[Rfam]
Rfam assigns this 178-nucleotide RNA from Propionispora vibrioides to the family "Lysine riboswitch aptamer". Riboswitches are metabolite binding domains within certain messenger RNAs that serve as precision sensors for their corresponding targets. A search with the family's covariance model found it, with a score of 116 bits. Gene Ontology term of the family: lysine biosynthetic process.
RNA sequence: GGGUGGAGUAGAGGUGCGAACAAGAUGAGUACUUUCAGCUAGAGUGGUGUCGAUGAUCUGAAAGGAAAGGGUUGUUUGCCGAAGUAUAGCAAGGCGGCCAAGCCUUGUAUACUGGUCUUACAUCGAAUAGGUUUAAGACUGUCACCAAAGUGGUAUUUGGUGGAGCGCUAUCUCAAAU
Numbered sequence: 001g002g003g004u005g006g007a008g009u010a011g012a013g014g015u016g017c018g019a020a021c022a023a024g025a026u027g028a029g030u031a032c033u034u035u036c037a038g039c040u041a042g043a044g045u046g047g048u049g050u051c052g053a054u055g056a057u058c059u060g061a062a063a064g065g066a067a068a069g070g071g072u073u074g075u076u077u078g079c080c081g082a083a084g085u086a087u088a089g090c091a092a093g094g095c096g097g098c099c100a101a102g103c104c105u106u107g108u109a110u111a112c113u114g115g116u117c118u119u120a121c122a123u124c125g126a127a128u129a130g131g132u133u134u135a136a137g138a139c140u141g142u143c144a145c146c147a148a149a150g151u152g153g154u155a156u157u158u159g160g161u162g163g164a165g166c167g168c169u170a171u172c173u174c175a176a177a178u
Stems, first nucleotide, its partner, number of pairs: 006173001008171004016079008032064007083113006091105001093103001114140007122132003142163007